The record is a 129-nucleotide sequence from Ooceraea biroi, which matches "U11 spliceosomal RNA" in Rfam. Pairs were carried over by alignment from the consensus structure, which is taken from published work. It is annotated as a spliceosomal small nuclear RNA. It scores 98 bits against the family's covariance model.
[Rfam]
RNA sequence: AAAAAGGGUGCUCGCUACUUCAAUAGCGCGCGAUGUCCUAGACGUUGCGGGGUAUGGCUAUCAAGACAUACCCAGUACGUAAUUUUUGAAAACAUGAGGCUGUUAGCUGCCACCUGCACUGACGCCUCU
Numbered sequence: 001a002a003a004a005a006g007g008g009u010g011c012u013c014g015c016u017a018c019u020u021c022a023a024u025a026g027c028g029c030g031c032g033a034u035g036u037c038c039u040a041g042a043c044g045u046u047g048c049g050g051g052g053u054a055u056g057g058c059u060a061u062c063a064a065g066a067c068a069u070a071c072c073c074a075g076u077a078c079g080u081a082a083u084u085u086u087u088g089a090a091a092a093c094a095u096g097a098g099g100c101u102g103u104u105a106g107c108u109g110c111c112a113c114c115u116g117c118a119c120u121g122a123c124g125c126c127u128c129u
Base pairs, nucleotide, nucleotide: 008078009077010076011075012074013028014027015026016025017024029049030048031047032046033045034044035043036042037041050073051072052071053070054069055068056067097127098126099125100124102123103122104121105120106119108118109117110116